[Rfam]
Rfam assigns this 121-nucleotide RNA from Carnegiea gigantea to the family "mir-393 microRNA precursor family". A search with the family's covariance model found it, with a score of 63 bits. NCBI's taxonomy places the organism under Eukaryota, Streptophyta, eudicotyledons, Cactineae, Carnegiea.
RNA sequence: GAAGGAUGAAUCCAAAGGGAUGGCACUGACCCAAAUUUACCUAUAACCCAAACAUCUUUUUUCCUUUUUUUUUUGGUGGGGUGGGUUGCAGGAUCAAUGCGAUCCCUUUGGAUUUCUCCUA
Numbered sequence: 001g002a003a004g005g006a007u008g009a010a011u012c013c014a015a016a017g018g019g020a021u022g023g024c025a026c027u028g029a030c031c032c033a034a035a036u037u038u039a040c041c042u043a044u045a046a047c048c049c050a051a052a053c054a055u056c057u058u059u060u061u062u063c064c065u066u067u068u069u070u071u072u073u074u075g076g077u078g079g080g081g082u083g084g085g086u087u088g089c090a091g092g093a094u095c096a097a098u099g100c101g102a103u104c105c106c107u108u109u110g111g112a113u114u115u116c117u118c119c120u121a
Stems, first nucleotide, its partner, number of pairs: 003120004008115014023100003028095002031092002036088001
Record summary: For this family Rfam cites "Role of microRNAs and other sRNAs of plants in their changing environments" (Kruszka et al., J Plant Physiol, 2012). Rfam 15.1 lists 1,052 matches to the family in 221 species.